[Rfam]
RNA sequence: GGUUGCAAGCUCAAGGCCAGAGCAGAAGUGCUCAUGGUGUGGUCAUUUAUGUCAGCUUCCAAUGAACCUGUGAAUUCUGCU
Numbered sequence: 001g002g003u004u005g006c007a008a009g010c011u012c013a014a015g016g017c018c019a020g021a022g023c024a025g026a027a028g029u030g031c032u033c034a035u036g037g038u039g040u041g042g043u044c045a046u047u048u049a050u051g052u053c054a055g056c057u058u059c060c061a062a063u064g065a066a067c068c069u070g071u072g073a074a075u076u077c078u079g080c081u
Stems, first nucleotide, its partner, number of pairs: 013046001015044004021081007028040003053070003057066003
Rfam assigns this 81-nucleotide sequence from Crocodylus porosus to the family "Mammalian CPEB3 ribozyme".
It scores 37 bits against the family's covariance model.
Rfam describes the family as follows. The mammalian CPEB3 ribozyme is a self cleaving RNA located in the second intron of the CPEB3 gene which belongs to a family of genes regulating messenger RNA polyadenylation.